[Rfam]
RNA sequence: UCACCUCAUAGGGCAUCCCCUGAUCAAGGAUGAUUCCAGACCUAUCGGGUGAACAACUAAACAACUGCCACCAGCCACUGGAAUAGCUGGUCGCCAAUUCUGAAGCGGGAGUAAUCCCAUUCGGACGGUCGACUAUUGCCUUUUUUGGCUGGUGCACG
Numbered sequence: 001u002c003a004c005c006u007c008a009u010a011g012g013g014c015a016u017c018c019c020c021u022g023a024u025c026a027a028g029g030a031u032g033a034u035u036c037c038a039g040a041c042c043u044a045u046c047g048g049g050u051g052a053a054c055a056a057c058u059a060a061a062c063a064a065c066u067g068c069c070a071c072c073a074g075c076c077a078c079u080g081g082a083a084u085a086g087c088u089g090g091u092c093g094c095c096a097a098u099u100c101u102g103a104a105g106c107g108g109g110a111g112u113a114a115u116c117c118c119a120u121u122c123g124g125a126c127g128g129u130c131g132a133c134u135a136u137u138g139c140c141u142u143u144u145u146u147g148g149c150u151g152g153u154g155c156a157c158g
Stems, first nucleotide, its partner, number of pairs: 001052005008045005014032005035083001037081001039079001069154007091132003095128001105120001107118003
The record is a 158-nucleotide sequence from Anaerocolumna xylanovorans, which matches "DUF2800 RNA" in Rfam. The organism belongs to Anaerocolumna xylanovorans, within Bacteria. The family's RNA type in Rfam is cis-regulatory element. The family's consensus secondary structure is taken from published work.